[Rfam]
A member of the RNA family "small nucleolar RNA snoR134" from Centaurea solstitialis, 162 nucleotides long. Gene Ontology terms of the family: RNA processing and nucleolus.
RNA sequence: CUGCAUGUAGCACCCCGGGCUUCUCUGAUGUAAUGAAUUGGAUGAAGAAGUAAGCCCCAAUGCUCGUGCUAGAUCAGAUUUUUUAUGGCCGUCAAGUGUUGCAGUUCAGCCUUUUGUACCUUUUUCUAUGGCGGUCUCUGUGUCAAAUCGACGGCUACAUCU
Dot-bracket structure: ..(((((..((.....(((((.((((...................))).)..)))))....)).)))))..................((((((...((.(((((....(((..................))).....))))).))....)))))).......
Numbered sequence: 001c002u003g004c005a006u007g008u009a010g011c012a013c014c015c016c017g018g019g020c021u022u023c024u025c026u027g028a029u030g031u032a033a034u035g036a037a038u039u040g041g042a043u044g045a046a047g048a049a050g051u052a053a054g055c056c057c058c059a060a061u062g063c064u065c066g067u068g069c070u071a072g073a074u075c076a077g078a079u080u081u082u083u084u085a086u087g088g089c090c091g092u093c094a095a096g097u098g099u100u101g102c103a104g105u106u107c108a109g110c111c112u113u114u115u116g117u118a119c120c121u122u123u124u125u126c127u128a129u130g131g132c133g134g135u136c137u138c139u140g141u142g143u144c145a146a147a148u149c150g151a152c153g154g155c156u157a158c159a160u161c162u
Stems, first nucleotide, its partner, number of pairs: 003069005010063002017057005023050001024048003088155006097145002100142005109132003
The source organism's lineage runs through Eukaryota, Spermatophyta, eudicotyledons, asterids and Centaurea. The literature on the family includes a 2009 paper in Nucleic Acids Res by Chen and Wu, "Mining small RNA sequencing data: a new approach to identify small nucleolar RNAs in Arabidopsis".